[Rfam]
Shown here is a 60-nucleotide sequence from Lactuca saligna, a member of the family "Plastid-psbA-2 3UTR RNA". By type it is a cis-regulatory element. Lineage of the source: Eukaryota > Euphyllophyta > Spermatophyta > campanulids > Lactuca. A search with the family's covariance model found it, with a score of 58 bits. On this family, see Richter et al., Plant Commun 2023: "Retrograde signaling in plants: A critical review focusing on the GUN pathway and beyond". From the family's description: Plastid psbA-2 is a non-coding RNA (ncRNA) present in plastids. It was identified in inverted repeat sequences in the 3 prime untranslate region (3UTR) of photosystem II quinone-binding protein (psbA).
RNA sequence: AAAAAGGAGCAAUAGCUUCCUUCUUGUUUUAUCAAGAGGCGUUAUUUCUCCUUUUUUAGU
Numbered sequence: 001a002a003a004a005a006g007g008a009g010c011a012a013u014a015g016c017u018u019c020c021u022u023c024u025u026g027u028u029u030u031a032u033c034a035a036g037a038g039g040c041g042u043u044a045u046u047u048c049u050c051c052u053u054u055u056u057u058a059g060u
Base pairs, nucleotide, nucleotide: 001056002055003054004053005052006051007050008049009048011046012045013044014043015042016041018039019038022037023036024035025034026033